[Rfam]
RNA: cspA thermoregulator
Nucleotides: 425
Base pairs, nucleotide, nucleotide: 004020005019006018007017008016009015030229036226037225046221047220050219052217053216054211057208067206068205069204070203072201075198077196079195080194081193085167086164087163088162089161096155100154101153102152104119105118106117107116130140131139132138169181170180234326235325236324237323246254247253259313260312261311262310267306268304269303271298273296274295276293279292280291332347333346334345349372350371351370352366353365354364355363375390376389377388395422396421397420398419399418400417401416402415403414404413405412406411
Number, partner (000 for none) and nucleotide at each position: 001000g002000u003000c004020g005019g006018u007017c008016g009015c010000a011000a012000g013000c014000u015009g016008c017007g018006g019005c020004u021000u022000u023000a024000c025000u026000u027000c028000a029000u030229g031000u032000a033000a034000c035000a036226g037225u038000c039000a040000a041000g042000a043000u044000u045000u046221g047220a048000a049000u050219a051000c052217u053216u054211c055000g056000c057208u058000a059000c060000a061000c062000a063000u064000u065000c066000g067206u068205u069204u070203u071000a072201c073000a074000g075198u076000a077196a078000u079195g080194u081193u082000g083000u084000c085167c086164u087163g088162a089161a090000g091000c092000u093000u094000c095000a096155c097000u098000a099000a100154c101153u102152g103000u104119u105118u106117g107116u108000a109000a110000u111000c112000a113000u114000a115000a116107g117106u118105a119104a120000u121000u122000g123000u124000u125000u126000u127000a128000a129000c130140g131139c132138g133000c134000u135000c136000a137000g138132c139131g140130c141000a142000c143000a144000g145000u146000c147000a148000a149000c150000u151000u152102c153101a154100g155096g156000a157000g158000a159000c160000a161089u162088u163087c164086a165000a166000u167085g168000u169181c170180c171000a172000a173000g174000u175000c176000u177000a178000c179000c180170g181169g182000c183000a184000c185000c186000g187000u188000u189000a190000a191000g192000u193081g194080g195079u196077u197000c198075a199000a200000c201072g202000a203070a204069g205068a206067a207000a208057a209000a210000g211054g212000u213000u214000u215000c216053g217052g218000c219050u220047u221046c222000a223000u224000c225037a226036c227000c228000c229030c230000u231000g232000a233000a234326a235325a236324c237323g238000g239000u240000g241000g242000u243000u244000c245000c246254g247253a248000c249000g250000u251000a252000u253247u254246c255000g256000u257000u258000c259313a260312c261311u262310u263000c264000c265000g266000c267306g268304c269303c270000a271298u272000c273296c274295a275000a276293g277000g278000c279292a280291c281000c282000g283000g284000c285000u286000u287000c288000a289000a290000a291280g292279u293276u294000c295274u296273g297000a298271a299000a300000g301000a302000a303269g304268g305000c306267c307000a308000a309000a310262a311261g312260g313259u314000u315000u316000c317000u318000u319000u320000c321000g322000a323237c324236g325235u326234u327000g328000a329000g330000c331000a332347a333346g334345g335000c336000c337000a338000g339000a340000a341000a342000g343000g344000c345334c346333c347332u348000c349372a350371g351370g352366c353365u354364g355363c356000c357000a358000a359000c360000g361000u362000a363355g364354u365353a366352g367000u368000u369000a370351u371350c372349u373000a374000a375390a376389c377388u378000a379000c380000a381000c382000g383000u384000a385000c386000a387000c388377a389376g390375u391000u392000u393000c394000c395422a396421g397420a398419a399418a400417g401416g402415a403414c404413g405412c406411c407000c408000u409000a410000g411406g412405g413404c414403g415402u416401c417400c418399u419398u420397u421396u422395u423000u424000a425000u